[Rfam]
RNA sequence: UCUGUUCUCGUCCAAAGGGAGGCGACUGCGGCAGUGAUCGGAUAGUGAGCCCAGUUUUGCUGACAACCCAUACAAUACAAUCGCAUCACUUCUAUCUCUUUAGGCAGAAGUUUUGAUGCAAUUUUUGACAGG
Numbered sequence: 001u002c003u004g005u006u007c008u009c010g011u012c013c014a015a016a017g018g019g020a021g022g023c024g025a026c027u028g029c030g031g032c033a034g035u036g037a038u039c040g041g042a043u044a045g046u047g048a049g050c051c052c053a054g055u056u057u058u059g060c061u062g063a064c065a066a067c068c069c070a071u072a073c074a075a076u077a078c079a080a081u082c083g084c085a086u087c088a089c090u091u092c093u094a095u096c097u098c099u100u101u102a103g104g105c106a107g108a109a110g111u112u113u114u115g116a117u118g119c120a121a122u123u124u125u126u127g128a129c130a131g132g
Stems, first nucleotide, its partner, number of pairs: 005021005022060003025055004030051003039045001083119006089110005